Rfam assigns this 172-nucleotide RNA from Peribacillus psychrosaccharolyticus to the family "glmS glucosamine-6-phosphate activated ribozyme aptamer". The organism belongs to Peribacillus, within Bacteria.
[Rfam]
RNA sequence: GAUUCAUUCAAAGCGCCUGAACUAAGCGUACGGUGUUAUAAGCUUAGUUGACGAGGAGGAGGUUUAUCGAUAUUUCGGCGGAUACCUCCCGGCUGAACGUGUACAGCCGCAGGAACCUUGACCUUAAAACAGCGUGGCAACGUGCUGCACAAAGGGUGAGGGAUACACAUAU
Numbered sequence: 001g002a003u004u005c006a007u008u009c010a011a012a013g014c015g016c017c018u019g020a021a022c023u024a025a026g027c028g029u030a031c032g033g034u035g036u037u038a039u040a041a042g043c044u045u046a047g048u049u050g051a052c053g054a055g056g057a058g059g060a061g062g063u064u065u066a067u068c069g070a071u072a073u074u075u076c077g078g079c080g081g082a083u084a085c086c087u088c089c090c091g092g093c094u095g096a097a098c099g100u101g102u103a104c105a106g107c108c109g110c111a112g113g114a115a116c117c118u119u120g121a122c123c124u125u126a127a128a129a130c131a132g133c134g135u136g137g138c139a140a141c142g143u144g145c146u147g148c149a150c151a152a153a154g155g156g157u158g159a160g161g162g163a164u165a166c167a168c169a170u171a172u
Base pairs, nucleotide, nucleotide: 020049021048022047023046024045025044026043027042029040058089059088060087061086062085067078068077069076070075090109091108092107093106094105095104116162117161118160119159121157122156130147131146132145133144134143135142136141